[Rfam]
RNA sequence: UGGGGAGUAUCUAUUUAACUAGAACUUCACCUAUGUUUUUUUUAUUAUAUAUACAGAAAAGUUGCCCAUAUCAACAAGAAUGGGACAAUAAU
Numbered sequence: 001u002g003g004g005g006a007g008u009a010u011c012u013a014u015u016u017a018a019c020u021a022g023a024a025c026u027u028c029a030c031c032u033a034u035g036u037u038u039u040u041u042u043u044a045u046u047a048u049a050u051a052u053a054c055a056g057a058a059a060a061g062u063u064g065c066c067c068a069u070a071u072c073a074a075c076a077a078g079a080a081u082g083g084g085a086c087a088a089u090a091a092u
Stems, first nucleotide, its partner, number of pairs: 002031002004028005010023004062088003065084005071079002
About this RNA:
Shown here is a 92-nucleotide RNA from Clostridium sp. CT7, a member of the family "pan motif". It is annotated as a cis-regulatory element.